Shown here is a 101-nucleotide sequence from Paenibacillus xerothermodurans, a member of the family "Purine riboswitch aptamer". The match comes from Rfam's covariance-model search (72 bits). A reference for the family is Mandal et al. (2003), "Riboswitches Control Fundamental Biochemical Pathways in Bacillus subtilis and Other Bacteria", Cell. The family's consensus secondary structure is taken from published work. Rfam links the family to the GO term purine nucleobase biosynthetic process.
RNA sequence: CUAAUAAGGGAAUAACAGUUUCGUAUAAUUUCGGGAAUCGGCCCGGAAGUUUCUACGAGAUCACCGUAAAUGAUCUGGCUACGAACAAACAAAAGCGGUAA
Numbered sequence: 001c002u003a004a005u006a007a008g009g010g011a012a013u014a015a016c017a018g019u020u021u022c023g024u025a026u027a028a029u030u031u032c033g034g035g036a037a038u039c040g041g042c043c044c045g046g047a048a049g050u051u052u053c054u055a056c057g058a059g060a061u062c063a064c065c066g067u068a069a070a071u072g073a074u075c076u077g078g079c080u081a082c083g084a085a086c087a088a089a090c091a092a093a094a095g096c097g098g099u100a101a
Stems, first nucleotide, its partner, number of pairs: 020085006029048007058076006